[Rfam]
RNA sequence: GGGGCAGGCCGGGCAAUCGCGGUGCGCAGCAUCGAGGAAGGUCCGGACUCCAUAGGGCAGGAUAGCGGCUAACAGCCGUCCGGCAAGUCUGGUUCGCCAGGCGAGCCGAGGAACAGGGCCACAGAGACGAGUCUGCAGCGAAGGCAUUCGUGCAUCGGCACGGCGACUUCCGUGCUGCGCGCCGGGUUUCCCGGCGCGGCGCUGCAGGGUGAAACGCGGUAACCUCUAUCCGGAGCAACACCAAAUAGGCAUGCGCGCGCCUUCGGCGCACAAGGGCGGCCCGUCCGAGCAUGCGGGUAGGUGGCUGGAGCGCGCCAGCAAUGGCGCGCCAAGAGGAAUGAUUGCCCGCCGCGUUCGCGCGGCGUACAGAAUCCGGCCUACAGGCCUGUCCCACAU
Numbered sequence: 001g002g003g004g005c006a007g008g009c010c011g012g013g014c015a016a017u018c019g020c021g022g023u024g025c026g027c028a029g030c031a032u033c034g035a036g037g038a039a040g041g042u043c044c045g046g047a048c049u050c051c052a053u054a055g056g057g058c059a060g061g062a063u064a065g066c067g068g069c070u071a072a073c074a075g076c077c078g079u080c081c082g083g084c085a086a087g088u089c090u091g092g093u094u095c096g097c098c099a100g101g102c103g104a105g106c107c108g109a110g111g112a113a114c115a116g117g118g119c120c121a122c123a124g125a126g127a128c129g130a131g132u133c134u135g136c137a138g139c140g141a142a143g144g145c146a147u148u149c150g151u152g153c154a155u156c157g158g159c160a161c162g163g164c165g166a167c168u169u170c171c172g173u174g175c176u177g178c179g180c181g182c183c184g185g186g187u188u189u190c191c192c193g194g195c196g197c198g199g200c201g202c203u204g205c206a207g208g209g210u211g212a213a214a215c216g217c218g219g220u221a222a223c224c225u226c227u228a229u230c231c232g233g234a235g236c237a238a239c240a241c242c243a244a245a246u247a248g249g250c251a252u253g254c255g256c257g258c259g260c261c262u263u264c265g266g267c268g269c270a271c272a273a274g275g276g277c278g279g280c281c282c283g284u285c286c287g288a289g290c291a292u293g294c295g296g297g298u299a300g301g302u303g304g305c306u307g308g309a310g311c312g313c314g315c316c317a318g319c320a321a322u323g324g325c326g327c328g329c330c331a332a333g334a335g336g337a338a339u340g341a342u343u344g345c346c347c348g349c350c351g352c353g354u355u356c357g358c359g360c361g362g363c364g365u366a367c368a369g370a371a372u373c374c375g376g377c378c379u380a381c382a383g384g385c386c387u388g389u390c391c392c393a394c395a396u
Stems, first nucleotide, its partner, number of pairs: 001392010011381001012346007020034006039379003043376005048235004055282004060231005065079005080110001081108004111226002116224002118220003133208002135205006143197001239303004249294006274286004310329008

The family of this 396-nucleotide sequence from Paracandidimonas soli is "Bacterial RNase P class A". The match comes from Rfam's covariance-model search (207 bits). Its family is annotated with tRNA processing, ribonuclease P activity and dimeric ribonuclease P complex in the Gene Ontology. The family's RNA type in Rfam is ribozyme. Lineage of the source: Bacteria > Betaproteobacteria > Burkholderiales > Alcaligenaceae > Paracandidimonas.